[Rfam]
RNA sequence: UCACCAAGCUAGGGGUGCCUCAAGCAGGUUUCACUGUUUUUGUGAAAGCAAAGAUAGUGAAGCGCGAUCGACAGCUUGUUUGAGGCUGAGAGCAUACCCUCAGAACCUGAUUCCGGUUGAUACCGGCGGAGGGAAGCUGUUUAUUGUAGGA
Numbered sequence: 001u002c003a004c005c006a007a008g009c010u011a012g013g014g015g016u017g018c019c020u021c022a023a024g025c026a027g028g029u030u031u032c033a034c035u036g037u038u039u040u041u042g043u044g045a046a047a048g049c050a051a052a053g054a055u056a057g058u059g060a061a062g063c064g065c066g067a068u069c070g071a072c073a074g075c076u077u078g079u080u081u082g083a084g085g086c087u088g089a090g091a092g093c094a095u096a097c098c099c100u101c102a103g104a105a106c107c108u109g110a111u112u113c114c115g116g117u118u119g120a121u122a123c124c125g126g127c128g129g130a131g132g133g134a135a136g137c138u139g140u141u142u143a144u145u146g147u148a149g150g151a
Base pairs, nucleotide, nucleotide: 007138008137009136010135011100012099013098014097016094017086018085019084020083021082022081023080024079025078026077027076028075029074030073106132107131108130113126114125115124116123
RNA: TPP riboswitch aptamer (THI element)